Small nucleolar RNA SNORA28: a 125-nucleotide sequence from Nannospalax galili. The base pairs follow the family's consensus structure, which was predicted with RNAfold. Its Rfam clan is "SNORA28 clan". The organism belongs to Nannospalax, within Eukaryota.

RNA sequence: AAGCAACACUCUGUGGCAGAUGAACAAAACUAUCUGACACAAUUUGAGCUUGCUUUAGAAAGAAAAUCAAACCUAUUCUGGUAUUUUCUUUCCCAAGAGAGACACAUUAUAUAGGCUCAAACAAU
Numbered sequence: 001a002a003g004c005a006a007c008a009c010u011c012u013g014u015g016g017c018a019g020a021u022g023a024a025c026a027a028a029a030c031u032a033u034c035u036g037a038c039a040c041a042a043u044u045u046g047a048g049c050u051u052g053c054u055u056u057a058g059a060a061a062g063a064a065a066a067u068c069a070a071a072c073c074u075a076u077u078c079u080g081g082u083a084u085u086u087u088c089u090u091u092c093c094c095a096a097g098a099g100a101g102a103c104a105c106a107u108u109a110u111a112u113a114g115g116c117u118c119a120a121a122c123a124a125u
Stems, first nucleotide, its partner, number of pairs: 009048003012041004017036006065117001067115002070112001074111003079106001081105002087100004